Small nucleolar RNA SNORA8: a 141-nucleotide sequence from Coregonus sp. 'balchen'.

RNA sequence: AGCACUGUAUGGUAUCUGCAGCCAGCCCUCACCACAGGCUGUUCUGUUCAUAACACAGUGCGAGAGCAAAUCUGCAUCUGGCAUCGUUAGGCUCUGGGCUAGUCUGUGCCUGGAACCCUGGUAUUUGUGCUGAGAACACUU
Numbered sequence: 001a002g003c004a005c006u007g008u009a010u011g012g013u014a015u016c017u018g019c020a021g022c023c024a025g026c027c028c029u030c031a032c033c034a035c036a037g038g039c040u041g042u043u044c045u046g047u048u049c050a051u052a053a054c055a056c057a058g059u060g061c062g063a064g065a066g067c068a069a070a071u072c073u074g075c076a077u078c079u080g081g082c083a084u085c086g087u088u089a090g091g092c093u094c095u096g097g098g099c100u101a102g103u104c105u106g107u108g109c110c111u112g113g114a115a116c117c118c119u120g121g122u123a124u125u126u127g128u129g130c131u132g133a134g135a136a137c138a139c140u141u
Stems, first nucleotide, its partner, number of pairs: 002061006017052001018047004024040004064130001066128005072121003080110005
The family's consensus secondary structure was predicted with RNAfold. NCBI's taxonomy places the organism under Eukaryota, Metazoa, Chordata, Clupeocephala, Coregonus. About the family: ACA8 is a member of the H/ACA class of snoRNA that guide the sites of modification of uridines to pseudouridines. Gene Ontology terms of the family: nucleolus and RNA processing. Its Rfam clan is "SNORA8 clan". By type it is an H/ACA-box small nucleolar RNA.